[Rfam]
Shown here is an 81-nucleotide RNA from Homarus americanus, a member of the family "mir-263 microRNA precursor family". Its family is annotated with RISC complex and miRNA-mediated post-transcriptional gene silencing in the Gene Ontology. The literature on the family includes a 2009 paper in BMC Genomics by Li et al., "Direct sequencing and expression analysis of a large number of miRNAs in Aedes aegypti and a multi-species survey of novel mosquito miRNAs". Pairs were carried over by alignment from the consensus structure, which was predicted with RNAalifold.
RNA sequence: UUACCGCCCUGAAUGGCACUGGAAGAAUUCACGGGGUGAGUCCUGGUCUCCGUGAUUUCCCGGUGCCAAUCAGGGAGGUGG
Numbered sequence: 001u002u003a004c005c006g007c008c009c010u011g012a013a014u015g016g017c018a019c020u021g022g023a024a025g026a027a028u029u030c031a032c033g034g035g036g037u038g039a040g041u042c043c044u045g046g047u048c049u050c051c052g053u054g055a056u057u058u059c060c061c062g063g064u065g066c067c068a069a070u071c072a073g074g075g076a077g078g079u080g081g
Base pairs, nucleotide, nucleotide: 003079004078005077007075008074009073010072014068015067016066017065018064020062021061022060023058025057026056029055030054031053032052033051034050